[Rfam]
RNA sequence: GUCGAACUUUGACCUAGCCUCUCCUUGGCUUUGUCUGUGUCUUACGAUUUAUCAGACAUAGCCUGAUAGAGGUUACGUUUUGUUCACUUG
Number, nucleotide and partner (000 for none) at each position: 001g000002u000003c000004g000005a000006a000007c000008u000009u000010u000011g000012a078013c077014c000015u075016a074017g073018c072019c071020u070021c000022u000023c000024c000025u000026u000027g063028g062029c061030u060031u000032u058033g057034u056035c055036u054037g000038u000039g000040u000041c000042u000043u000044a000045c000046g000047a000048u000049u000050u000051a000052u000053c000054a036055g035056a034057c033058a032059u000060a030061g029062c028063c027064u000065g000066a000067u000068a000069g000070a020071g019072g018073u017074u016075a015076c000077g013078u012079u000080u000081u000082g000083u000084u000085c000086a000087c000088u000089u000090g000